RNA sequence: UGUUUGAAUUUGGCGCCGCGUUGAUUUGGAGUCGUACUAUGGUUUUUGGUACUCACAUAGUACGUUCCGAAUCGACUAGUUAACAAAUUUUAAAU
Numbered sequence: 001u002g003u004u005u006g007a008a009u010u011u012g013g014c015g016c017c018g019c020g021u022u023g024a025u026u027u028g029g030a031g032u033c034g035u036a037c038u039a040u041g042g043u044u045u046u047u048g049g050u051a052c053u054c055a056c057a058u059a060g061u062a063c064g065u066u067c068c069g070a071a072u073c074g075a076c077u078a079g080u081u082a083a084c085a086a087a088u089u090u091u092a093a094a095u
Stems, first nucleotide, its partner, number of pairs: 006090007020076013034063008
Rfam assigns this 95-nucleotide RNA from Tribolium castaneum to the family "mir-3851 microRNA precursor family".
Gene Ontology terms of the family: miRNA-mediated post-transcriptional gene silencing and RISC complex.
The family's consensus secondary structure was predicted with RNAalifold.
Taxonomically the source falls in Tribolium (Eukaryota, Metazoa, Mandibulata, Neoptera).